[Rfam]
RNA: Small nucleolar RNA Z122
Organism: Populus tomentosa
RNA sequence: GUUGGGAAAUGAUGAAAGUUACAACAGAUUAUUGAAGGAGCUAUCGAUGCUGAAUAAUCAUUUGCACGUCAGUCUGAUCCUGAA
Number, nucleotide and partner (000 for none) at each position: 001g000002u083003u082004g081005g080006g079007a078008a000009a000010u000011g000012a000013u000014g000015a000016a000017a000018g000019u000020u000021a000022c000023a000024a000025c000026a000027g000028a000029u000030u000031a000032u000033u000034g000035a000036a000037g000038g000039a000040g000041c000042u000043a000044u000045c000046g000047a000048u000049g000050c000051u000052g000053a000054a000055u000056a000057a000058u000059c000060a000061u000062u000063u000064g000065c000066a000067c000068g000069u000070c000071a000072g000073u000074c000075u000076g000077a000078u007079c006080c005081u004082g003083a002084a000